Shown here is a 133-nucleotide sequence from Pleuronectes platessa, a member of the family "U8 small nucleolar RNA". The match comes from Rfam's covariance-model search (103 bits). Pairs were carried over by alignment from the consensus structure, which is taken from published work. For this family Rfam cites "The U8 snoRNA gene family: identification and characterization of distinct, functional U8 genes in Xenopus" (Peculis et al., Gene, 2001).

RNA sequence: UCUUCAGUGAGGUACAUCCUUACCUGCUACUCUCUAAGGAGAGUAUCAGAUCAUGAUGAAUGGAGACACAUGAGAUAUGAUUAGUAUCUCCAUCUUGUAGGGAACUGCAACACCCUACAAGAUCCAUUCUGAU
Number, nucleotide and partner (000 for none) at each position: 001u000002c000003u000004u000005c000006a000007g000008u000009g000010a000011g000012g000013u000014a000015c000016a000017u000018c000019c000020u000021u000022a000023c000024c049025u048026g047027c000028u045029a044030c043031u042032c041033u040034c000035u000036a000037a000038g000039g000040a033041g032042a031043g030044u029045a028046u000047c026048a025049g024050a000051u000052c000053a000054u000055g000056a000057u000058g000059a000060a000061u000062g000063g000064a000065g000066a000067c000068a000069c000070a000071u000072g090073a089074g000075a087076u086077a085078u083079g000080a000081u000082u000083a078084g000085u077086a076087u075088c000089u073090c072091c000092a000093u000094c121095u120096u119097g118098u117099a116100g115101g114102g000103a000104a000105c000106u000107g000108c000109a000110a000111c000112a000113c000114c101115c100116u099117a098118c097119a096120a095121g094122a000123u000124c000125c000126a000127u000128u000129c000130u000131g000132a000133u000